The family of this 88-nucleotide RNA from Dioscorea zingiberensis is "mir-160 microRNA precursor family".
Gene Ontology terms of the family: RISC complex and miRNA-mediated post-transcriptional gene silencing.
On this family, see Rhoades et al., Cell 2002: "Prediction of plant microRNA targets".
[Rfam]
RNA sequence: UUGUGCCUGGCUCCCUGUAUGCCACACAUGUAGCUCAAUCCUUGUUGAGAUUGUCUACUGUGGGUGGCGUGCGAGGAGCCAAGCAUUC
Numbered sequence: 001u002u003g004u005g006c007c008u009g010g011c012u013c014c015c016u017g018u019a020u021g022c023c024a025c026a027c028a029u030g031u032a033g034c035u036c037a038a039u040c041c042u043u044g045u046u047g048a049g050a051u052u053g054u055c056u057a058c059u060g061u062g063g064g065u066g067g068c069g070u071g072c073g074a075g076g077a078g079c080c081a082a083g084c085a086u087u088c
Base pairs, nucleotide, nucleotide: 003086004085005084006083008081009080010079011078012077013076014075016073017072018071019070020069021068022067023066024065027062028061029060